[Rfam]
RNA: Purine riboswitch aptamer
RNA sequence: AAAAUUUAAUAUGAACGCAUCAAUAUAAUGUGGAAGAUAUGGUUCCAAAGUUUCUACCAAACGACCGUAAAUUGUUUGACUAUUGAUAGUUUUAAUUUUUUA
Numbered sequence: 001a002a003a004a005u006u007u008a009a010u011a012u013g014a015a016c017g018c019a020u021c022a023a024u025a026u027a028a029u030g031u032g033g034a035a036g037a038u039a040u041g042g043u044u045c046c047a048a049a050g051u052u053u054c055u056a057c058c059a060a061a062c063g064a065c066c067g068u069a070a071a072u073u074g075u076u077u078g079a080c081u082a083u084u085g086a087u088a089g090u091u092u093u094a095a096u097u098u099u100u101u102a
Base pairs, nucleotide, nucleotide: 019087020086021085022084023083024082025081029049031047032046033045034044035043058078059077060076061075062074063073064072